[Rfam]
RNA sequence: CCGCGGGGACGACCCCCACGGCCCCUACGGGUCCGGGGACGGCCCC
Dot-bracket structure: (((.((((....))))..))).............((((....))))
Guanidine-II riboswitch aptamer (mini-ykkC): a 46-nucleotide RNA from Streptomyces laurentii. The family's consensus secondary structure is taken from published work. Gene Ontology term of the family: regulation of gene expression.